Selenocysteine transfer RNA: a 92-nucleotide RNA from Sinosporangium siamense.
Gene Ontology term of the family: triplet codon-amino acid adaptor activity.
Taxonomically the source falls in Sinosporangium (Bacteria, Bacillati, Actinomycetota, Actinomycetes).
For this family Rfam cites "Eukaryotic selenocysteine tRNA has the 9/4 secondary structure" (Mizutani and Goto, FEBS Lett, 2000).
Pairs were carried over by alignment from the consensus structure, which is taken from published work.

[Rfam]
RNA sequence: GGAGGCGUAUGGGUGCCUGGUGGCCCCCUCGGUCUUCAAAACCGAUGACGCCGAGUAGCUCGGCGUGGCGGGUUCGAUUCCCGUCCGCCUCC
Number, nucleotide and partner (000 for none) at each position: 001g092002g091003a090004g089005g088006c087007g086008u000009a084010u000011g000012g027013g026014u000015g024016c023017c022018u000019g000020g000021u000022g017023g016024c015025c000026c013027c012028c000029u045030c044031g043032g042033u041034c000035u000036u000037c000038a000039a000040a000041a033042c032043c031044g030045a029046u000047g000048a066049c065050g064051c063052c062053g000054a000055g000056u000057a000058g000059c000060u000061c000062g052063g051064c050065g049066u048067g000068g000069c083070g082071g081072g080073u000074u000075c000076g000077a000078u000079u000080c072081c071082c070083g069084u009085c000086c007087g006088c005089c004090u003091c002092c001